[Rfam]
RNA sequence: CCGUUCAACUCGUCUCCUCCAUGAAGGAGACUACGGGAG
Numbered sequence: 001c002c003g004u005u006c007a008a009c010u011c012g013u014c015u016c017c018u019c020c021a022u023g024a025a026g027g028a029g030a031c032u033a034c035g036g037g038a039g
Stems, first nucleotide, its partner, number of pairs: 001036004012031007
RNA: THF-II riboswitch (folE RNA)